[Rfam]
RNA sequence: AAGACUGUACUUAUACAGGAUCUUUCUUAUAGUAAUUACUUACUGUAAGUUUCUUCAUUUGAAGACAACAACUCAAACUAGGAUGAUUAAAAGGACACUCUCAUCCGUAAAUGGGAUACAGAAACCAUUAGUAUUUUACUCUCUUCGGAGAGUAGGUAUUUUUGCGUUUCACGAUGAUCAUCCACCGCUGUGUUUGACCGAUCGUCUAUACGAGAAGUCACCAGUGGUUGGAGGGUGUGAGUGCUUCUGACUAGUU
Numbered sequence: 001a002a003g004a005c006u007g008u009a010c011u012u013a014u015a016c017a018g019g020a021u022c023u024u025u026c027u028u029a030u031a032g033u034a035a036u037u038a039c040u041u042a043c044u045g046u047a048a049g050u051u052u053c054u055u056c057a058u059u060u061g062a063a064g065a066c067a068a069c070a071a072c073u074c075a076a077a078c079u080a081g082g083a084u085g086a087u088u089a090a091a092a093g094g095a096c097a098c099u100c101u102c103a104u105c106c107g108u109a110a111a112u113g114g115g116a117u118a119c120a121g122a123a124a125c126c127a128u129u130a131g132u133a134u135u136u137u138a139c140u141c142u143c144u145u146c147g148g149a150g151a152g153u154a155g156g157u158a159u160u161u162u163u164g165c166g167u168u169u170c171a172c173g174a175u176g177a178u179c180a181u182c183c184a185c186c187g188c189u190g191u192g193u194u195u196g197a198c199c200g201a202u203c204g205u206c207u208a209u210a211c212g213a214g215a216a217g218u219c220a221c222c223a224g225u226g227g228u229u230g231g232a233g234g235g236u237g238u239g240a241g242u243g244c245u246u247c248u249g250a251c252u253a254g255u256u
Base pairs, nucleotide, nucleotide: 001041002040003039006035008034009033010032011031017027018026019025020024049069050068051067052065053064054063055062056061077255078254079253080252081251096243097242098241099240100239102237103236104235105234106233111181112180113179114178121170122169123168126164185227186226187225188224190222
This 256-nucleotide RNA sequence from Tetrahymena thermophila belongs to the Rfam family "ACEA small nucleolar RNA U3". Clan: U3 clan. Rfam links the family to the GO terms RNA processing and nucleolus. The sequence is in the family's curated seed alignment. The literature on the family includes a 2010 paper in RNA Biol by Marz and Stadler, "Comparative analysis of eukaryotic U3 snoRNA". The source organism's lineage runs through Eukaryota, Alveolata, Oligohymenophorea, Hymenostomatida and Tetrahymena thermophila. Rfam describes the family as follows. Small nucleolar RNAs (snoRNAs) are involved in the processing and modification of rRNA in the nucleolus. Rfam classes the family as a C/D-box small nucleolar RNA. Pairs were carried over by alignment from the consensus structure, which is taken from published work.